[Rfam]
This 75-nucleotide sequence from Crocodylus porosus belongs to the Rfam family "Mammalian CPEB3 ribozyme". NCBI's taxonomy places the organism under Eukaryota, Chordata, Craniata, Vertebrata, Crocodylus. Its family is annotated with RNA nuclease activity in the Gene Ontology.
RNA sequence: UCACGAAGUCGAGGCCAUAGCAGAAGCACUCACGGCGUGGCCCUGUCAGGUCCCGAUGAAUCCGCAAAUUCUGCU
Numbered sequence: 001u002c003a004c005g006a007a008g009u010c011g012a013g014g015c016c017a018u019a020g021c022a023g024a025a026g027c028a029c030u031c032a033c034g035g036c037g038u039g040g041c042c043c044u045g046u047c048a049g050g051u052c053c054c055g056a057u058g059a060a061u062c063c064g065c066a067a068a069u070u071c072u073g074c075u
Base pairs, nucleotide, nucleotide: 011043013042014041015040016039019075020074021073022072023071024070025069026038027037047064049062050061051060053058